This 364-nucleotide part of an RNA from Oryzias sinensis belongs to the Rfam family "Eukaryotic large subunit ribosomal RNA". Its family is annotated with ribosome and structural constituent of ribosome in the Gene Ontology. Lineage of the source: Eukaryota > Metazoa > Vertebrata > Adrianichthyoidei > Oryzias.
RNA sequence: GAGUUUAACAUGUGCGCGAGUCAUUGGGCGUUACGAAACCCAAAGGCGUAGUGAAAGUGAAGGUUCGGCUUGUCCGGACUGAGGUGAGAUCCUGUGGCUUCUCGUGCGAGGUACCACCAAGCGUGUGAGUCAUAGGCGCAUCACCAGCCCGUCUCAUGGUGUAGUCGUGUGGCCUUGUGUUGCAUGCGUCACCGGGGCGGAGCCUGAGCGCACACGUUGAGACCCGAAAGAUGGUGAACUAUGCUUGCGGAGGUUGAAGCCAGAGGAAACUCUGGUGGAGGACCGCAGCGAUUCUGACGUGCAAAUCGAUCGUCUAACGUGAGUAUAGGGGCGAAAGACUAAUCGAACCAUCUAGUAGCUGGUU
Numbered sequence: 001g002a003g004u005u006u007a008a009c010a011u012g013u014g015c016g017c018g019a020g021u022c023a024u025u026g027g028g029c030g031u032u033a034c035g036a037a038a039c040c041c042a043a044a045g046g047c048g049u050a051g052u053g054a055a056a057g058u059g060a061a062g063g064u065u066c067g068g069c070u071u072g073u074c075c076g077g078a079c080u081g082a083g084g085u086g087a088g089a090u091c092c093u094g095u096g097g098c099u100u101c102u103c104g105u106g107c108g109a110g111g112u113a114c115c116a117c118c119a120a121g122c123g124u125g126u127g128a129g130u131c132a133u134a135g136g137c138g139c140a141u142c143a144c145c146a147g148c149c150c151g152u153c154u155c156a157u158g159g160u161g162u163a164g165u166c167g168u169g170u171g172g173c174c175u176u177g178u179g180u181u182g183c184a185u186g187c188g189u190c191a192c193c194g195g196g197g198c199g200g201a202g203c204c205u206g207a208g209c210g211c212a213c214a215c216g217u218u219g220a221g222a223c224c225c226g227a228a229a230g231a232u233g234g235u236g237a238a239c240u241a242u243g244c245u246u247g248c249g250g251a252g253g254u255u256g257a258a259g260c261c262a263g264a265g266g267a268a269a270c271u272c273u274g275g276u277g278g279a280g281g282a283c284c285g286c287a288g289c290g291a292u293u294c295u296g297a298c299g300u301g302c303a304a305a306u307c308g309a310u311c312g313u314c315u316a317a318c319g320u321g322a323g324u325a326u327a328g329g330g331g332c333g334a335a336a337g338a339c340u341a342a343u344c345g346a347a348c349c350a351u352c353u354a355g356u357a358g359c360u361g362g363u364u
Stems, first nucleotide, its partner, number of pairs: 005220005011214007020047003025042004051058002083145005091136010147203002149200003152196003158190006223362002226359001230352006239328011252284004259276007288313004293309002296307002330340002